[Rfam]
RNA: Giant, ornate, lake- and Lactobacillales-derived (GOLLD) RNA
RNA sequence: GAGAGUAGUUCAGUAUCGAGUCGUUCAAAAGAUGACUUGUCUGGUUGGCAGACCGCUACUUUCACCAUCCACAGACCAAAAACUUUGCAUUUUUGAAGUAUGCAAAUACUAAGAGACAAAGGAAAAGUGUCUGUCAGUCGUAGGCGAAAGGUGACUACAUAGUAAUGAGAUGUUCAUUGCCGUUGUGGGUUCCCAAGACCCAAACGAUUCUUGAGAACGUUCUCUAAUCCCGCAAGGAUUCACUGGGGUGGCAACCUCGGAGAGUAACAAGUACAAAGAGAGUAACCGACGACUCAAGGAAUGGUAACCCUAAGUGACCGUCACUGAGAAUUACUACUCAAAAGGUAGUGGAAACGGGAAGAAAAAAUAAUGUCCCCAAAGAUUCUUAAUCAAAGGUGUAUUCUCAACCU
Number, nucleotide and partner (000 for none) at each position: 001g063002a062003g061004a060005g059006u058007a057008g056009u055010u044011c043012a042013g041014u000015a000016u000017c039018g038019a037020g036021u035022c034023g033024u032025u031026c000027a000028a000029a000030a000031g025032a024033u023034g022035a021036c020037u019038u018039g017040u000041c013042u012043g011044g010045u000046u000047g135048g134049c133050a132051g131052a130053c129054c000055g009056c008057u007058a006059c005060u004061u003062u002063c001064a000065c000066c000067a000068u000069c000070c000071a000072c000073a000074g000075a000076c000077c000078a000079a000080a000081a000082a000083c000084u000085u000086u000087g000088c000089a000090u000091u000092u000093u000094u000095g000096a000097a000098g000099u000100a000101u000102g000103c000104a000105a000106a000107u000108a000109c000110u000111a000112a000113g000114a000115g000116a000117c000118a000119a000120a000121g194122g193123a000124a000125a000126a000127g000128u000129g053130u052131c051132u050133g049134u048135c047136a294137g293138u292139c291140g290141u289142a000143g287144g286145c000146g000147a000148a000149a000150g000151g324152u323153g322154a321155c320156u000157a000158c000159a000160u000161a000162g180163u179164a178165a177166u176167g175168a000169g000170a000171u000172g000173u000174u000175c167176a166177u165178u164179g163180c162181c206182g205183u204184u203185g000186u000187g000188g200189g199190u198191u197192c000193c122194c121195a000196a000197g191198a190199c189200c188201c000202a000203a184204a183205c182206g181207a000208u000209u279210c278211u277212u276213g000214a000215g000216a000217a000218c000219g000220u000221u000222c264223u263224c262225u261226a000227a239228u238229c237230c236231c000232g000233c000234a000235a000236g230237g229238a228239u227240u000241c000242a000243c260244u259245g258246g000247g256248g255249u000250g000251g000252c000253a000254a000255c248256c247257u000258c245259g244260g243261a225262g224263a223264g222265u000266a000267a000268c000269a000270a000271g000272u000273a000274c000275a000276a212277a211278g210279a209280g000281a000282g000283u000284a000285a000286c144287c143288g000289a141290c140291g139292a138293c137294u136295c000296a000297a000298g000299g000300a000301a000302u000303g319304g318305u317306a000307a315308c314309c000310c000311u000312a000313a000314g308315u307316g000317a305318c304319c303320g155321u154322c153323a152324c151325u000326g387327a386328g385329a384330a383331u382332u350333a349334c348335u347336a346337c345338u344339c000340a000341a000342a000343a000344g338345g337346u336347a335348g334349u333350g332351g403352a402353a401354a000355c000356g376357g375358g374359a373360a000361g371362a000363a000364a000365a000366a000367a000368u000369a000370a000371u361372g000373u359374c358375c357376c356377c000378a000379a000380a000381g000382a331383u330384u329385c328386u327387u326388a000389a000390u000391c000392a000393a000394a000395g409396g408397u407398g000399u000400a000401u353402u352403c351404u000405c000406a000407a397408c396409c395410u000